[Rfam]
RNA: che1 RNA
RNA sequence: CGGACAGGGGGGUUCCUGCCCCUGGGCAGGGCCUGUCCGAACCGGCUGCGCAGACGCGCGGCCAGUGGUUGUCGCUCGGGGGUGAUCGCCG
Numbered sequence: 001c002g003g004a005c006a007g008g009g010g011g012g013u014u015c016c017u018g019c020c021c022c023u024g025g026g027c028a029g030g031g032c033c034u035g036u037c038c039g040a041a042c043c044g045g046c047u048g049c050g051c052a053g054a055c056g057c058g059c060g061g062c063c064a065g066u067g068g069u070u071g072u073c074g075c076u077c078g079g080g081g082g083u084g085a086u087c088g089c090c091g
Stems, first nucleotide, its partner, number of pairs: 001039008014031007044063008